A member of the RNA family "Plastid-rpl16 group II-D1 intron" from Abrus precatorius, 47 nucleotides long. Gene Ontology term of the family: Group II intron splicing. The base pairs follow the family's consensus structure, which was predicted with LocARNA. For this family Rfam cites "Retrograde signaling in plants: A critical review focusing on the GUN pathway and beyond" (Richter et al., Plant Commun, 2023). Plastid-rpl16 is a non-coding RNA (ncRNA) recognised in plastids.
RNA sequence: AAGAGCUCCGAAUAAAUAAAAAUUGAGAAGGUUGAUUCAAGAAAAAA
Numbered sequence: 001a002a003g004a005g006c007u008c009c010g011a012a013u014a015a016a017u018a019a020a021a022a023u024u025g026a027g028a029a030g031g032u033u034g035a036u037u038c039a040a041g042a043a044a045a046a047a
Stems, first nucleotide, its partner, number of pairs: 007041001010038004015033003
Dot-bracket structure: ......(..((((.(((.............))).))))..)......